[Rfam]
RNA sequence: GCCUUGUUUCAUCUCCAAGCCCUGCUGCCUGGGUGCAUCGCGGAGCCCCGUGUUGCAUAUGGCAAAGGGCCGUGGCCCGGGUGUGUGACGGGUCACCGGGUCAGGCUGGAAACGGGCUGGCCUUCCCGUUCUGGAAUGGAGUGUCAGCAUGACCCGC
Numbered sequence: 001g002c003c004u005u006g007u008u009u010c011a012u013c014u015c016c017a018a019g020c021c022c023u024g025c026u027g028c029c030u031g032g033g034u035g036c037a038u039c040g041c042g043g044a045g046c047c048c049c050g051u052g053u054u055g056c057a058u059a060u061g062g063c064a065a066a067g068g069g070c071c072g073u074g075g076c077c078c079g080g081g082u083g084u085g086u087g088a089c090g091g092g093u094c095a096c097c098g099g100g101u102c103a104g105g106c107u108g109g110a111a112a113c114g115g116g117c118u119g120g121c122c123u124u125c126c127c128g129u130u131c132u133g134g135a136a137u138g139g140a141g142u143g144u145c146a147g148c149a150u151g152a153c154c155c156g157c
Stems, first nucleotide, its partner, number of pairs: 003151001006148001013141004019070005026064004033058004072096008098123007106115003124134002
Dot-bracket structure: ..(..(......((((..(((((..((((...((((..................))))..)))).))))).((((((((.........)))))))).(((((((.(((....))).)))))))((.......))...))))......)..)......
Notes
Shown here is a 157-nucleotide RNA from Thermomonas hydrothermalis, a member of the family "Molybdenum/Tungsten riboswitch aptamer (Moco RNA motif)". NCBI's taxonomy places the organism under Bacteria, Pseudomonadota, Gammaproteobacteria, Lysobacteraceae, Thermomonas. Rfam links the family to the GO terms regulation of gene expression, molybdenum ion binding and tungstate binding.